[Rfam]
The family of this 137-nucleotide RNA sequence from Python bivittatus is "Small Cajal body specific RNA 3".
It is annotated as a small Cajal body RNA.
scaRNAs are a specific class of small nuclear RNAs which localise to the Cajal bodies and guide the modification of RNA polymerase II transcribed spliceosomal RNAs U1, U2, U4, U5 and U12.
Its family is annotated with RNA processing, nucleolus and Cajal body in the Gene Ontology.
A reference for the family is Darzacq et al. (2002), "Cajal body-specific small nuclear RNAs: a novel class of 2'-O-methylation and pseudouridylation guide RNAs", EMBO J.
The match comes from Rfam's covariance-model search (88 bits).
The base pairs follow the family's consensus structure, which was predicted with RNAalifold.
RNA sequence: ACUGGAAGCUGAAUGAACCUCUGGAGCAGGCAAACGCAGUCUCUUUUGCCUGUACUGUCAGCCUUCCUAGAGUAAAGCGGAGGUCUCUGUCUGGUUUAGCCAAGCAAACUGAUCCAGAUCGUUCCCCUUUGCACAUG
Numbered sequence: 001a002c003u004g005g006a007a008g009c010u011g012a013a014u015g016a017a018c019c020u021c022u023g024g025a026g027c028a029g030g031c032a033a034a035c036g037c038a039g040u041c042u043c044u045u046u047u048g049c050c051u052g053u054a055c056u057g058u059c060a061g062c063c064u065u066c067c068u069a070g071a072g073u074a075a076a077g078c079g080g081a082g083g084u085c086u087c088u089g090u091c092u093g094g095u096u097u098a099g100c101c102a103a104g105c106a107a108a109c110u111g112a113u114c115c116a117g118a119u120c121g122u123u124c125c126c127c128u129u130u131g132c133a134c135a136u137g
Stems, first nucleotide, its partner, number of pairs: 004067003008062005026053006036045001079130005087121001089119003093115002096112004